[Rfam]
RNA sequence: GUCGGGUACGGAGACCACUACCCUACCACCGGCGGAGGGAAAUUCCUGGGCAGCAUCUGUGCCUUAGCAGGGAUCCUGACCAUAGCUCUACCUGUUCCCGUCAUCGUUACAAAA
Numbered sequence: 001g002u003c004g005g006g007u008a009c010g011g012a013g014a015c016c017a018c019u020a021c022c023c024u025a026c027c028a029c030c031g032g033c034g035g036a037g038g039g040a041a042a043u044u045c046c047u048g049g050g051c052a053g054c055a056u057c058u059g060u061g062c063c064u065u066a067g068c069a070g071g072g073a074u075c076c077u078g079a080c081c082a083u084a085g086c087u088c089u090a091c092c093u094g095u096u097c098c099c100g101u102c103a104u105c106g107u108u109a110c111a112a113a114a
Stems, first nucleotide, its partner, number of pairs: 002113001005110001008107004013102003020095002037077004049063003
Potassium channel RNA editing signal: a 114-nucleotide sequence from Branchiostoma lanceolatum. Rfam classes the family as a cis-regulatory element. The source organism's lineage runs through Eukaryota, Metazoa, Deuterostomia, Chordata and Branchiostoma. Gene Ontology term of the family: adenosine to inosine editing. Rfam's curators write: This family represents a group of sequences related to the human potassium channel Kv1.1 hairpin element which directs the efficient modification of an adenosine to inosine by an adenosine deaminase acting on RNA (ADAR).